[Rfam]
RNA sequence: GUACAACUCAAUAGGGCCUGGGUGGGCGACCAAUCCCCUGAAAGGGGGUGAGGCCUUGACGGUGUAUCAAUCACUUUCACUAAUGAUUGCGUUUGCAACCUUGGUUGUGCUGAUACUCAGACAUAAGCAAAAGUAGCCCGCCCAGCAAGCGAGAGCUACUUUUGCUUUCGAUACCCCUGUUAGGCCGCCCAUUGACGGCUGUGAGUUGUGCUACCGGGAUGUUUGCCGCGUCCCGG
Numbered sequence: 001g002u003a004c005a006a007c008u009c010a011a012u013a014g015g016g017c018c019u020g021g022g023u024g025g026g027c028g029a030c031c032a033a034u035c036c037c038c039u040g041a042a043a044g045g046g047g048g049u050g051a052g053g054c055c056u057u058g059a060c061g062g063u064g065u066a067u068c069a070a071u072c073a074c075u076u077u078c079a080c081u082a083a084u085g086a087u088u089g090c091g092u093u094u095g096c097a098a099c100c101u102u103g104g105u106u107g108u109g110c111u112g113a114u115a116c117u118c119a120g121a122c123a124u125a126a127g128c129a130a131a132a133g134u135a136g137c138c139c140g141c142c143c144a145g146c147a148a149g150c151g152a153g154a155g156c157u158a159c160u161u162u163u164g165c166u167u168u169c170g171a172u173a174c175c176c177c178u179g180u181u182a183g184g185c186c187g188c189c190c191a192u193u194g195a196c197g198g199c200u201g202u203g204a205g206u207u208g209u210g211c212u213a214c215c216g217g218g219a220u221g222u223u224u225g226c227c228g229c230g231u232c233c234c235g236g
Stems, first nucleotide, its partner, number of pairs: 001211005007205003015186005021142007031050002034048005058114001060112005071086003095106001145165003187200001189198002214236009
RNA: BsrG